[Rfam]
RNA sequence: AACUUAACUGUGUUAUAAUACACACAGAUCGGCACAUUUUCCGGGGUGCUCUUAUGUAGGAAAAUCUACAGCUAAUGAGUCGGGGAAUGGGAUCUGUGGAGGCAUAAC
Numbered sequence: 001a002a003c004u005u006a007a008c009u010g011u012g013u014u015a016u017a018a019u020a021c022a023c024a025c026a027g028a029u030c031g032g033c034a035c036a037u038u039u040u041c042c043g044g045g046g047u048g049c050u051c052u053u054a055u056g057u058a059g060g061a062a063a064a065u066c067u068a069c070a071g072c073u074a075a076u077g078a079g080u081c082g083g084g085g086a087a088u089g090g091g092a093u094c095u096g097u098g099g100a101g102g103c104a105u106a107a108c
Stems, first nucleotide, its partner, number of pairs: 023098008035089009048080004
The family of this 108-nucleotide RNA from Arsenophonus endosymbiont of Aleurodicus floccissimus is "t44 RNA". Rfam describes the family as follows. This family consists of a number of bacterial RNA genes of between 135 and 170 bases in length. The t44 gene has been identified in several species of enteric bacteria but homologs have also been identified in Pseudomonas and Coxiella species. The t44 gene is found between the map and rpsB genes in all species in the full alignment apart from Shigella flexneri. The function of this RNA is unknown. Pairs were carried over by alignment from the consensus structure, which was predicted with LocARNA. It scores 76 bits against the family's covariance model. NCBI's taxonomy places the organism under Bacteria, Pseudomonadati, Enterobacterales, Morganellaceae, Arsenophonus.